[Rfam]
RNA sequence: CUGCGAUGAUGGCAUUUCUUAGGACACCUUUGGACUCACCAUGAAAAAAAAACUAUUUUCUGAGCGGC
Numbered sequence: 001c002u003g004c005g006a007u008g009a010u011g012g013c014a015u016u017u018c019u020u021a022g023g024a025c026a027c028c029u030u031u032g033g034a035c036u037c038a039c040c041a042u043g044a045a046a047a048a049a050a051a052a053c054u055a056u057u058u059u060c061u062g063a064g065c066g067g068c
Base pairs, nucleotide, nucleotide: 001067002066003065004064
The record is a 68-nucleotide RNA from Suricata suricatta, which matches "Small nucleolar RNA SNORD58" in Rfam. From the family's description: snoRNA U58 is found in introns 1, 3 and 6 of the ribosomal protein RPL17 gene in humans. Lineage of the source: Eukaryota > Opisthokonta > Eumetazoa > Mammalia > Suricata. The family has 33 seed sequences and 2,484 matches in Rfam 15.1. The family's RNA type in Rfam is C/D-box small nucleolar RNA.